Rfam assigns this 190-nucleotide sequence from Caballeronia glathei to the family "Burkholderia sRNA Bp2_Cand287_SIPHT". Rfam classes the family as a small RNA. The source organism's lineage runs through Bacteria, Pseudomonadota, Burkholderiales, Burkholderiaceae and Caballeronia. On this family, see Khoo et al., BMC Genomics 2012: "Computational discovery and RT-PCR validation of novel Burkholderia conserved and Burkholderia pseudomallei unique sRNAs". The match comes from Rfam's covariance-model search (96 bits).

[Rfam]
RNA sequence: AAAAAGCCCGCUUGUGCGUCGACAGAAGCGGGCUCGUGCGGAAAAGCGUGUCGCGGUGCGGUGUCGCCACCGUUUCGCUUUAGCUGUUUGGGGUUCGUGCCGCUGCCGGCAUGGCCCCGCGUCCGCAAGCUGAUCUCAAAUCGACGCAAGUCCCGAUGCUAACACGGCGCGGGCCAGGCCCGCACCGUGC
Numbered sequence: 001a002a003a004a005a006g007c008c009c010g011c012u013u014g015u016g017c018g019u020c021g022a023c024a025g026a027a028g029c030g031g032g033c034u035c036g037u038g039c040g041g042a043a044a045a046g047c048g049u050g051u052c053g054c055g056g057u058g059c060g061g062u063g064u065c066g067c068c069a070c071c072g073u074u075u076c077g078c079u080u081u082a083g084c085u086g087u088u089u090g091g092g093g094u095u096c097g098u099g100c101c102g103c104u105g106c107c108g109g110c111a112u113g114g115c116c117c118c119g120c121g122u123c124c125g126c127a128a129g130c131u132g133a134u135c136u137c138a139a140a141u142c143g144a145c146g147c148a149a150g151u152c153c154c155g156a157u158g159c160u161a162a163c164a165c166g167g168c169g170c171g172g173g174c175c176a177g178g179c180c181c182g183c184a185c186c187g188u189g190c
Stems, first nucleotide, its partner, number of pairs: 005034008015024002037148004045079003053074001054072001056070002060068003080133006091118003119126002163189005